[Rfam]
The record is an 87-nucleotide RNA sequence from Blastococcus tunisiensis, which matches "c-di-GMP-II-GAG riboswitch aptamer" in Rfam. Rfam links the family to the GO terms cyclic-di-GMP binding and regulation of gene expression. The source organism's lineage runs through Bacteria, Actinomycetota, Actinomycetes, Geodermatophilales and Blastococcus. The match comes from Rfam's covariance-model search (58 bits).
RNA sequence: ACGCGCGAGGCAUGCUGAGAACCGACGGGCCGAAUCUGGUCGCCUAUGGCCGUCGGGGAGCAAAUGGCGAAACCGGGCCUUCCGUCU
Dot-bracket structure: (.(((.(((((.(((......(((((((.(.......[[[[[[[....))))))))...)))...]]]]]..]]..))))).))).)